Shown here is a 313-nucleotide sequence from Chinchilla lanigera, a member of the family "7SK RNA". Rfam 15.1 lists 49,373 matches to the family in 668 species. Clan: 7SK clan. The base pairs follow the family's consensus structure, which is taken from published work. By type it is a non-coding RNA gene. A search with the family's covariance model found it, with a score of 262 bits. Rfam describes the family as follows. 7SK was discovered as an abundant small nuclear RNA in the mid-70s but a possible function has only recently been suggested. Two independent studies have found that 7SK RNA binds the CDK9/cyclin T complex (known as elongation factor P-TEFb). P-TEFb activates transcription by phosphorylating the C-terminal domain of RNA polymerase II. This process is negatively regulated by the 7SK RNP. The secondary structure of 7SK RNA shown here was proposed by Wasserman and Steitz on the basis of chemical modification and enzymatic cleavage experiments. This family contains a number of annotated pseudogenes and 7SK derived repeats.
[Rfam]
RNA sequence: GGAUGUGAGGGCGAUCUGGCUGCGACAUCUGUCACCCCAUUGAUCGCCAGGGUUGAUUCGGCUGAUCUGGCUGGCUAGGCGGGGGUCCCCUUCCUCCCUCAACGCUCCAUGUGCGUCCCUCCCGAAGCUGCGCGCUCGGUCGAAGAGGACGACCACCCCCGAUAGAGGAGGACCGUUCCUCGGUCAAGGGUAUACGAGUAGCUGCGCUCCCCUGCUAGAACCUCCAAACAAGCUCCAAGAGAAAAGUAUGAAUGUAUUUACCUUACACUUGCCAAACGGCCGUGGAAUGUGAUCUGUUCCCCUGCUUUUCCGA
Numbered sequence: 001g002g003a004u005g006u007g008a009g010g011g012c013g014a015u016c017u018g019g020c021u022g023c024g025a026c027a028u029c030u031g032u033c034a035c036c037c038c039a040u041u042g043a044u045c046g047c048c049a050g051g052g053u054u055g056a057u058u059c060g061g062c063u064g065a066u067c068u069g070g071c072u073g074g075c076u077a078g079g080c081g082g083g084g085g086u087c088c089c090c091u092u093c094c095u096c097c098c099u100c101a102a103c104g105c106u107c108c109a110u111g112u113g114c115g116u117c118c119c120u121c122c123c124g125a126a127g128c129u130g131c132g133c134g135c136u137c138g139g140u141c142g143a144a145g146a147g148g149a150c151g152a153c154c155a156c157c158c159c160c161g162a163u164a165g166a167g168g169a170g171g172a173c174c175g176u177u178c179c180u181c182g183g184u185c186a187a188g189g190g191u192a193u194a195c196g197a198g199u200a201g202c203u204g205c206g207c208u209c210c211c212c213u214g215c216u217a218g219a220a221c222c223u224c225c226a227a228a229c230a231a232g233c234u235c236c237a238a239g240a241g242a243a244a245a246g247u248a249u250g251a252a253u254g255u256a257u258u259u260a261c262c263u264u265a266c267a268c269u270u271g272c273c274a275a276a277c278g279g280c281c282g283u284g285g286a287a288u289g290u291g292a293u294c295u296g297u298u299c300c301c302c303u304g305c306u307u308u309u310c311c312g313a
Base pairs, nucleotide, nucleotide: 001108002107003106006101007100008099009098010097011096013093014092018090019089024087025086026085028083029082030081031080032079033078035074036073037070038069039068042067043066044065045064046062047061048060116171117170118168119167120166121165122139123138124137125136127135128134140162141161142160147158148157201258203256207254211250213248214247215246222241223240224239281312282311284308285307286306288304289301291299